[Rfam]
RNA sequence: CGAUGGGUUUUACCCAUCGCUGAUUUGUGUCGCCCUUUCAGGGCU
Numbered sequence: 001c002g003a004u005g006g007g008u009u010u011u012a013c014c015c016a017u018c019g020c021u022g023a024u025u026u027g028u029g030u031c032g033c034c035c036u037u038u039c040a041g042g043g044c045u
Stems, first nucleotide, its partner, number of pairs: 001019008032044005

A member of the RNA family "Acido-Lenti-1 RNA" from Taibaiella lutea, 45 nucleotides long. The match comes from Rfam's covariance-model search (38 bits). It is annotated as a small RNA.